[Rfam]
This 113-nucleotide sequence from Oryza barthii belongs to the Rfam family "MIR2863 microRNA precursor family".
The organism belongs to Oryza, within Eukaryota.
The family is grouped with related families in Rfam's "MIR2863 microRNA precursor clan".

RNA sequence: GUAUACUCCUUUACCCACACUAGUUCAACUAAAUGAACUAAAUUUCACUUUUAGAAUCACAAAAAAUGAAAUGUAGUUCGUUUAUUUGGACUAGAGUGGGUCAAUUAGUACCU
Numbered sequence: 001g002u003a004u005a006c007u008c009c010u011u012u013a014c015c016c017a018c019a020c021u022a023g024u025u026c027a028a029c030u031a032a033a034u035g036a037a038c039u040a041a042a043u044u045u046c047a048c049u050u051u052u053a054g055a056a057u058c059a060c061a062a063a064a065a066a067u068g069a070a071a072u073g074u075a076g077u078u079c080g081u082u083u084a085u086u087u088g089g090a091c092u093a094g095a096g097u098g099g100g101u102c103a104a105u106u107a108g109u110a111c112c113u
Base pairs, nucleotide, nucleotide: 001113004110005109006108007107010104011103014100015099016098017097018096020094021093022092023091024090025089026088027087028086030084031083032082033081034080035079036078037077038076039075040074042072043071044070045069046068047067049065050064051063052062054060